[Rfam]
RNA sequence: UUAUAAGUUACAGGAGAGACCCUAUCCUUUAGGGGAGGGGCGCCGAAGGGGCAAGUUCCGCUAAUGGCGGAAUGAAACUCUCAGGCAAAAGGACCGUAACUUAAGA
Numbered sequence: 001u002u003a004u005a006a007g008u009u010a011c012a013g014g015a016g017a018g019a020c021c022c023u024a025u026c027c028u029u030u031a032g033g034g035g036a037g038g039g040g041c042g043c044c045g046a047a048g049g050g051g052c053a054a055g056u057u058c059c060g061c062u063a064a065u066g067g068c069g070g071a072a073u074g075a076a077a078c079u080c081u082c083a084g085g086c087a088a089a090a091g092g093a094c095c096g097u098a099a100c101u102u103a104a105g106a
Stems, first nucleotide, its partner, number of pairs: 006101006013094001020040004042086003045082002049080003055073006

Source information:
A member of the RNA family "Glycine riboswitch aptamer" from a Syntrophaceae bacterium, 106 nucleotides long. About the family: This family represents the bacterial glycine riboswitch. Rfam links the family to the GO term glycine biosynthetic process.